[Rfam]
Nucleotides: 144
Stems, first nucleotide, its partner, number of pairs: 004137001011130006019061006028054003034049004063081007084109009094099001110121002
Number, partner (000 for none) and nucleotide at each position: 001000u002000a003000a004137a005000u006000a007000g008000c009000u010000u011130u012129u013128c014127u015126c016125c017000g018000a019061g020060c021059c022058g023057g024056u025000c026000g027000a028054a029053c030052c031000u032000a033000c034049g035048g036047g037046c038000g039000a040000a041000a042000a043000a044000c045000g046037g047036c048035c049034u050000a051000u052030g053029g054028u055000a056024g057023c058022c059021g060020g061019c062000c063081u064080g065079g066078g067077u068076u069075c070000c071000u072000a073000a074000a075069g076068a077067a078066c079065c080064c081063a082000c083000g084109g085108g086107g087106u088105a089104u090103g091102c092101c093000g094099g095000g096000a097000a098000a099094c100000g101092g102091g103090c104089a105088u106087g107086c108085c109084u110121c111120c112000c113000u114000a115000c116000g117000c118000u119000c120111g121110g122000a123000a124000a125016g126015g127014a128013g129012a130011a131000a132000g133000g134000c135000c136000u137004u138000g139000c140000c141000u142000a143000g144000u
The record is a 144-nucleotide sequence from Thermanaeromonas toyohensis, which matches "Molybdenum/Tungsten riboswitch aptamer (Moco RNA motif)" in Rfam.
A search with the family's covariance model found it, with a score of 76 bits.